[Rfam]
The family of this 143-nucleotide RNA is "RT-14 RNA". It is one of the family's seed sequences. Pairs were carried over by alignment from the consensus structure, which is taken from published work. By type it is a small RNA.
RNA sequence: CUCUAAUACAAUUUGAGAUUAUAUAUUUCAAGGAAUGUAUACGGUAAAAGUAUUAGUAUUAAAGAAACUUAUUCCUUCCUAAUUAAGGUAAAAAUAAAAUAGAAAAAUAGGUAUUAGUAGAAAAUUCGAAUAUACUUAUUUUU
Number, nucleotide and partner (000 for none) at each position: 001c000002u000003c056004u055005a054006a053007u052008a051009c050010a000011a000012u000013u047014u046015g000016a000017g000018a000019u000020u041021a040022u039023a038024u037025a036026u035027u034028u033029c000030a000031a000032g000033g028034a027035a026036u025037g024038u023039a022040u021041a020042c000043g000044g000045u000046a014047a013048a000049a000050g009051u008052a007053u006054u005055a004056g003057u000058a000059u000060u000061a000062a000063a000064g000065a000066a000067a000068c000069u000070u000071a000072u000073u000074c000075c000076u000077u000078c088079c087080u086081a000082a000083u000084u000085a000086a080087g079088g078089u000090a000091a000092a000093a000094a000095u000096a000097a000098a000099a000100u000101a000102g000103a143104a142105a141106a140107a139108u138109a137110g136111g135112u134113a133114u132115u000116a000117g000118u000119a000120g127121a126122a000123a000124a000125u000126u121127c120128g000129a000130a000131u000132a114133u113134a112135c111136u110137u109138a108139u107140u106141u105142u104143u103